[Rfam]
RNA sequence: CCUUCGAUAGCUCAGUUGGUAGAAGCGAUGGACUGUAAUUGGUUUGAUUAAAAUAUGAGAGACAUCCAGAGGUCGCUGGUUCGAAACCGGCUCGAAGGA
Numbered sequence: 001c002c003u004u005c006g007a008u009a010g011c012u013c014a015g016u017u018g019g020u021a022g023a024a025g026c027g028a029u030g031g032a033c034u035g036u037a038a039u040u041g042g043u044u045u046g047a048u049u050a051a052a053a054u055a056u057g058a059g060a061g062a063c064a065u066c067c068a069g070a071g072g073u074c075g076c077u078g079g080u081u082c083g084a085a086a087c088c089g090g091c092u093c094g095a096a097g098g099a
Base pairs, nucleotide, nucleotide: 001098002097003096004095005094006093007092010026011025012024029068030067031066032065075091076090077089078088079087
Rfam assigns this 99-nucleotide RNA from Aphidius gifuensis to the family "tRNA". It scores 46 bits against the family's covariance model. Rfam classes the family as a transfer RNA. The family has 954 seed sequences and 5,335,975 matches in Rfam 15.1. The family's consensus secondary structure is taken from published work.